Rfam assigns this 133-nucleotide sequence from Ramphastos sulfuratus to the family "Small nucleolar RNA SNORA9". Clan: SNORA9 clan. It scores 112 bits against the family's covariance model. Gene Ontology terms of the family: RNA processing and nucleolus. Rfam's curators write: ACA9 is a member of the H/ACA class of snoRNA that guide the sites of modification of uridines to pseudouridines. The organism belongs to Ramphastos, within Eukaryota. The base pairs follow the family's consensus structure, which was predicted with PFOLD.
RNA sequence: AUGCAAGCAUUCCAGCGUGGGGGGGUCUGAGGUGGCCCCCUCAUUCCUACAGCGCUUGCCAGAGCAGCCCUGGGAUGGUUUGAGGCCUCUCUCUGCUCACUUCAGGGAGGAGUUAUAGAAAUCCUGGACAUCU
Dot-bracket structure: ..((((((.........(((..(((((......)))))..)))..........))))))...........(((((..........(.((((.(((.......))).)))).).........))))).......